[Rfam]
RNA sequence: UGCCGUCGGCGAAUCGGCGUCGGCGAAGGGCCAAUCGGGGUCAGAAGA
Numbered sequence: 001u002g003c004c005g006u007c008g009g010c011g012a013a014u015c016g017g018c019g020u021c022g023g024c025g026a027a028g029g030g031c032c033a034a035u036c037g038g039g040g041u042c043a044g045a046a047g048a
Stems, first nucleotide, its partner, number of pairs: 004025008029042004